[Rfam]
RNA sequence: CAUCUUACCGGACAGUGCUGGACUGUAUAACUGUUUUCUAACACUGUCUGGUAACGAUG
Numbered sequence: 001c002a003u004c005u006u007a008c009c010g011g012a013c014a015g016u017g018c019u020g021g022a023c024u025g026u027a028u029a030a031c032u033g034u035u036u037u038c039u040a041a042c043a044c045u046g047u048c049u050g051g052u053a054a055c056g057a058u059g
Base pairs, nucleotide, nucleotide: 001059002058003057004056005054006053007052008051009050010049011048012047013046014045015044016043017042019040020039021038022037

Annotation: The family of this 59-nucleotide RNA from Ictalurus punctatus is "mir-8/mir-141/mir-200 microRNA precursor family". The family has 164 seed sequences and 2,669 matches in Rfam 15.1. Pairs were carried over by alignment from the consensus structure, which was predicted with RNAalifold. Rfam's curators put it in the seed alignment.